Rfam assigns this 109-nucleotide RNA from Steroidobacter agaridevorans to the family "t44 RNA". This family consists of a number of bacterial RNA genes of between 135 and 170 bases in length. The t44 gene has been identified in several species of enteric bacteria but homologs have also been identified in Pseudomonas and Coxiella species.
RNA sequence: CUCUCUUUAACCUGAAUUCUCACAUCUGACCGACACAGGUGACGGGGUGCUCGUACUGAAUCCUCCGGGAUGAAUACGAGUCGUCAGCUGGGGCAGAUGGAGGCUCAAC
Numbered sequence: 001c002u003c004u005c006u007u008u009a010a011c012c013u014g015a016a017u018u019c020u021c022a023c024a025u026c027u028g029a030c031c032g033a034c035a036c037a038g039g040u041g042a043c044g045g046g047g048u049g050c051u052c053g054u055a056c057u058g059a060a061u062c063c064u065c066c067g068g069g070a071u072g073a074a075u076a077c078g079a080g081u082c083g084u085c086a087g088c089u090g091g092g093g094c095a096g097a098u099g100g101a102g103g104c105u106c107a108a109c
Stems, first nucleotide, its partner, number of pairs: 023099006030093002036090003040086005049081007
The source organism's lineage runs through Bacteria, Pseudomonadota, Gammaproteobacteria, Steroidobacteraceae and Steroidobacter. It scores 65 bits against the family's covariance model.